[Rfam]
RNA sequence: GGGUUUAACUCCUGCUUAUUACCUUUAUGCUCAAAUUACUUUGAGCGCGUUUGGUGUCUGAUUCUCAAGGAACCGGGAGCACCAUCUACGUAGGCUUAACUAUUAAGGCAUGCCACCUACGGUCUUGGACGGCCCCCGCUAAGCAGGGACCCCAAAUUGUUAAAUCACUUAUCGGACAAAGA
Numbered sequence: 001g002g003g004u005u006u007a008a009c010u011c012c013u014g015c016u017u018a019u020u021a022c023c024u025u026u027a028u029g030c031u032c033a034a035a036u037u038a039c040u041u042u043g044a045g046c047g048c049g050u051u052u053g054g055u056g057u058c059u060g061a062u063u064c065u066c067a068a069g070g071a072a073c074c075g076g077g078a079g080c081a082c083c084a085u086c087u088a089c090g091u092a093g094g095c096u097u098a099a100c101u102a103u104u105a106a107g108g109c110a111u112g113c114c115a116c117c118u119a120c121g122g123u124c125u126u127g128g129a130c131g132g133c134c135c136c137c138g139c140u141a142a143g144c145a146g147g148g149a150c151c152c153c154a155a156a157u158u159g160u161u162a163a164a165u166c167a168c169u170u171a172u173c174g175g176a177c178a179a180a181g182a
Base pairs, nucleotide, nucleotide: 001152002151003150004149005148006147011143013141014140028047029046030045031044032043033042034041035040052084053083054082055081056080057079058076059075060074062072063071064070089138090137093134094133095132096131103128104127105126106125107124108123109122
A member of the RNA family "Pseudomonas sRNA P27" from Thiopseudomonas alkaliphila, 182 nucleotides long. The literature on the family includes a 2006 paper in Nucleic Acids Res by Livny et al., "Identification of 17 Pseudomonas aeruginosa sRNAs and prediction of sRNA-encoding genes in 10 diverse pathogens using the bioinformatic tool sRNAPredict2".